[Rfam]
RNA sequence: GAUCGACUCUCUGGAGACACCCGCUCAUGCCGGGGACCGAAGGGGCAACAUGCCAUGCGGCAUGAAAUCUCUCAGGUAAAAGGACGGAGAUGGUAUU
Numbered sequence: 001g002a003u004c005g006a007c008u009c010u011c012u013g014g015a016g017a018c019a020c021c022c023g024c025u026c027a028u029g030c031c032g033g034g035g036a037c038c039g040a041a042g043g044g045g046c047a048a049c050a051u052g053c054c055a056u057g058c059g060g061c062a063u064g065a066a067a068u069c070u071c072u073c074a075g076g077u078a079a080a081a082g083g084a085c086g087g088a089g090a091u092g093g094u095a096u097u
Base pairs, nucleotide, nucleotide: 008090009089010088011087012086013085020034021033022032023031036077037076038075039073040072043071044070045069049064050063051062052061053060054059
This 97-nucleotide RNA sequence from Roseburia zhanii belongs to the Rfam family "Glycine riboswitch aptamer". This family represents the bacterial glycine riboswitch. Glycine riboswitches usually consist of two metabolite-binding aptamers domains with similar structures in tandem. The aptamers cooperatively bind glycine to regulate the expression of downstream genes. In Bacillus subtilis, this riboswitch is found upstream of the gcvT operon which controls glycine degradation. The match comes from Rfam's covariance-model search (60 bits).